The family of this 59-nucleotide RNA sequence from Usitatibacter rugosus is "Selenocysteine insertion sequence 3". The match comes from Rfam's covariance-model search (83 bits). The organism belongs to Usitatibacter, within Bacteria. The family has 24 seed sequences and 640 matches in Rfam 15.1. The base pairs follow the family's consensus structure, which was predicted with CMfinder. Rfam links the family to the GO term selenocysteine incorporation.
RNA sequence: GUUUGACACGGCCCCACGGUGGCGAGUCUCGCCCCGACGUUCGGCCGCGGUGCAAUGAC
Numbered sequence: 001g002u003u004u005g006a007c008a009c010g011g012c013c014c015c016a017c018g019g020u021g022g023c024g025a026g027u028c029u030c031g032c033c034c035c036g037a038c039g040u041u042c043g044g045c046c047g048c049g050g051u052g053c054a055a056u057g058a059c
Base pairs, nucleotide, nucleotide: 007049009047010046011045012044013043016041018035019034021033022032023031024030025029